[Rfam]
This 97-nucleotide sequence from Enterococcus cecorum belongs to the Rfam family "THF (Tetrahydrofolate) riboswitch aptamer".
The source organism's lineage runs through Bacteria, Bacillati, Lactobacillales, Enterococcaceae and Enterococcus cecorum.
Rfam describes the family as follows. Tetrahydrofolate (THF) riboswitch was first reported for Ames et al. as an RNA motif in 5' untranslated (5'-UTR)regions of folate transport and biosynthesis genes in Firmicutes genomes.
It scores 82 bits against the family's covariance model.
For this family Rfam cites "A eubacterial riboswitch class that senses the coenzyme tetrahydrofolate" (Ames et al., Chem Biol, 2010).
Its family is annotated with tetrahydrofolate metabolic process in the Gene Ontology.
The family's consensus secondary structure is taken from published work.
RNA sequence: UAUAGAGUAGGGGUUAGUGCGUUAAGUGCUUUGAGGAUGGGAUGUUGCCUCAUUGACGAAGAAUUUUAUUCGCGGUGCUAAUCUCGCAUUCGCUGCA
Dot-bracket structure: (.(((....(((((((((((((...((.(..(((((...[[[[[...)))))..)))...((((...))))))).)))))))))).]]]]].))).)